[Rfam]
RNA sequence: UACACAGUCAUUCAUCCUUGUGGUGUUUGUACCCCCUUUCCUCUCCCUCAUCUUUUCGGAGAUUAGUGGUAGAGAAGUAAGCGGUUUUUGUUGAUGUCUUUUGUCCGUUUCUCGCCCUGUACUCCGAACGGUGCAGAGGAAACAUAAAACUAAUCUCAGAG
Numbered sequence: 001u002a003c004a005c006a007g008u009c010a011u012u013c014a015u016c017c018u019u020g021u022g023g024u025g026u027u028u029g030u031a032c033c034c035c036c037u038u039u040c041c042u043c044u045c046c047c048u049c050a051u052c053u054u055u056u057c058g059g060a061g062a063u064u065a066g067u068g069g070u071a072g073a074g075a076a077g078u079a080a081g082c083g084g085u086u087u088u089u090g091u092u093g094a095u096g097u098c099u100u101u102u103g104u105c106c107g108u109u110u111c112u113c114g115c116c117c118u119g120u121a122c123u124c125c126g127a128a129c130g131g132u133g134c135a136g137a138g139g140a141a142a143c144a145u146a147a148a149a150c151u152a153a154u155c156u157c158a159g160a161g
Stems, first nucleotide, its partner, number of pairs: 007034001011031001013029002016023002040077001041074004046069002049066001050064001051062002093155003096150002099148003102144003115139002117136006125130001